Shown here is a 76-nucleotide RNA sequence from Melanocharis versteri, a member of the family "mir-196 microRNA precursor family".

[Rfam]
RNA sequence: UCUGUGAAUUAGGUAGUUUCAUGUUGUUGGGCUCUUGCUUGGAAACGCAAGAACAUCAAACUGCCUGAUUUACGCC
Numbered sequence: 001u002c003u004g005u006g007a008a009u010u011a012g013g014u015a016g017u018u019u020c021a022u023g024u025u026g027u028u029g030g031g032c033u034c035u036u037g038c039u040u041g042g043a044a045a046c047g048c049a050a051g052a053a054c055a056u057c058a059a060a061c062u063g064c065c066u067g068a069u070u071u072a073c074g075c076c
Base pairs, nucleotide, nucleotide: 003074004073005072006071007070008069009068010067011066012065013064014063015062016061017060018059019058022055023054024053025052027050028049029048031046

NCBI's taxonomy places the organism under Eukaryota, Teleostomi, Dinosauria, Passeroidea, Melanocharis.
Pairs were carried over by alignment from the consensus structure, which was predicted with PFOLD.
Gene Ontology terms of the family: gene silencing by miRNA and RISC complex.